[Rfam]
RNA sequence: CACUGGCCGAGACAACACUGCCCGCGAGCCCGGGCCUCGGCGGCGGCGAGAGGUAAGCGCCGCGGCCUGCUCUCUCCAGGCCCUCUCCGAGCCUGCGUCGCGGCUCCUCGUGACCCGGGGGCUUCUGUCGCCCCAGACAGGAACGUCGUCGCGCUGCGCGGCCACAGCCUGUUGCUGGACUCCCGGGACUCCUGAGCGACCGCUGAGCGACCGGCCCACGGCGCCCGCAGGAUGAAGGUGACGGUGGUGGCGGCGGCGCUGCUG
Numbered sequence: 001c002a003c004u005g006g007c008c009g010a011g012a013c014a015a016c017a018c019u020g021c022c023c024g025c026g027a028g029c030c031c032g033g034g035c036c037u038c039g040g041c042g043g044c045g046g047c048g049a050g051a052g053g054u055a056a057g058c059g060c061c062g063c064g065g066c067c068u069g070c071u072c073u074c075u076c077c078a079g080g081c082c083c084u085c086u087c088c089g090a091g092c093c094u095g096c097g098u099c100g101c102g103g104c105u106c107c108u109c110g111u112g113a114c115c116c117g118g119g120g121g122c123u124u125c126u127g128u129c130g131c132c133c134c135a136g137a138c139a140g141g142a143a144c145g146u147c148g149u150c151g152c153g154c155u156g157c158g159c160g161g162c163c164a165c166a167g168c169c170u171g172u173u174g175c176u177g178g179a180c181u182c183c184c185g186g187g188a189c190u191c192c193u194g195a196g197c198g199a200c201c202g203c204u205g206a207g208c209g210a211c212c213g214g215c216c217c218a219c220g221g222c223g224c225c226c227g228c229a230g231g232a233u234g235a236a237g238g239u240g241a242c243g244g245u246g247g248u249g250g251c252g253g254c255g256g257c258g259c260u261g262c263u264g
Stems, first nucleotide, its partner, number of pairs: 004253001006251004016161001019158002029119006057106001059104007165177004